[Rfam]
RNA sequence: UCGACUCAUUUGUAAGGAAUGGGAUCGUUUGCCUACGUUUGCCGCUAGGGGCGCUGUUCCAACUGCAUACAAAAUUGGGUUA
Numbered sequence: 001u002c003g004a005c006u007c008a009u010u011u012g013u014a015a016g017g018a019a020u021g022g023g024a025u026c027g028u029u030u031g032c033c034u035a036c037g038u039u040u041g042c043c044g045c046u047a048g049g050g051g052c053g054c055u056g057u058u059c060c061a062a063c064u065g066c067a068u069a070c071a072a073a074a075u076u077g078g079g080u081u082a
Base pairs, nucleotide, nucleotide: 008076009073010072011071012070013069014068016066018064020062022060023059024058026056027055032050033049034048037045038044

The record is an 82-nucleotide RNA from Bombyx mori, which matches "mir-2807 microRNA precursor family" in Rfam. The literature on the family includes a 2010 paper in BMC Genomics by Liu et al., "MicroRNAs of Bombyx mori identified by Solexa sequencing".